The record is an 81-nucleotide RNA from Ornithorhynchus anatinus, which matches "mir-130 microRNA precursor family" in Rfam.
The match comes from Rfam's covariance-model search (53 bits).
Taxonomically the source falls in Ornithorhynchus (Eukaryota, Tetrapoda, Mammalia, Ornithorhynchidae).
A reference for the family is Lagos-Quintana et al. (2002), "Identification of tissue-specific microRNAs from mouse", Curr Biol.

[Rfam]
RNA sequence: UCCAAACCCGGGCUCUUUCCACUGAGCCACGAUCAGUACCAGUAAACAGCGUAGCUCAGUGGAAAGAGCAUGGGCUUUGGA
Numbered sequence: 001u002c003c004a005a006a007c008c009c010g011g012g013c014u015c016u017u018u019c020c021a022c023u024g025a026g027c028c029a030c031g032a033u034c035a036g037u038a039c040c041a042g043u044a045a046a047c048a049g050c051g052u053a054g055c056u057c058a059g060u061g062g063a064a065a066g067a068g069c070a071u072g073g074g075c076u077u078u079g080g081a
Stems, first nucleotide, its partner, number of pairs: 001081003005076001007074004012069008022059006028051001